[Rfam]
RNA: MIR394 microRNA precursor family
RNA sequence: AUUACAGAGCCAUUUUGGCAUUCUGUCCACCUCCAUCAAAGUUCAAUUUGAUCUCUAUUGUGUUUGGAGGUGGCCAAGAUGCCAAAAUAACAUUGUAAA
Numbered sequence: 001a002u003u004a005c006a007g008a009g010c011c012a013u014u015u016u017g018g019c020a021u022u023c024u025g026u027c028c029a030c031c032u033c034c035a036u037c038a039a040a041g042u043u044c045a046a047u048u049u050g051a052u053c054u055c056u057a058u059u060g061u062g063u064u065u066g067g068a069g070g071u072g073g074c075c076a077a078g079a080u081g082c083c084a085a086a087a088u089a090a091c092a093u094u095g096u097a098a099a
Base pairs, nucleotide, nucleotide: 015085016084017083018082019081020080024076025075027073028072029071030070031069032068033067034066
Dot-bracket structure: ..............((((((...((.((((((((...............................)))))))).))...))))))..............